Rfam assigns this 68-nucleotide RNA sequence from Rothia sp. ZJ932 to the family "Actino-pnp RNA". It scores 62 bits against the family's covariance model. The family's consensus secondary structure is taken from published work. Rfam classes the family as a cis-regulatory element. NCBI's taxonomy places the organism under Bacteria, Actinomycetota, Micrococcales, Micrococcaceae, Rothia.
RNA sequence: UUGAGUCCUCGGUAGUGGCUUCCGGAAAAUACAAAGAAUUUUUCCGUGGGCUUCGAUCGAAGACUGCG
Numbered sequence: 001u002u003g004a005g006u007c008c009u010c011g012g013u014a015g016u017g018g019c020u021u022c023c024g025g026a027a028a029a030u031a032c033a034a035a036g037a038a039u040u041u042u043u044c045c046g047u048g049g050g051c052u053u054c055g056a057u058c059g060a061a062g063a064c065u066g067c068g
Stems, first nucleotide, its partner, number of pairs: 001068001004065004009060005017052005023046007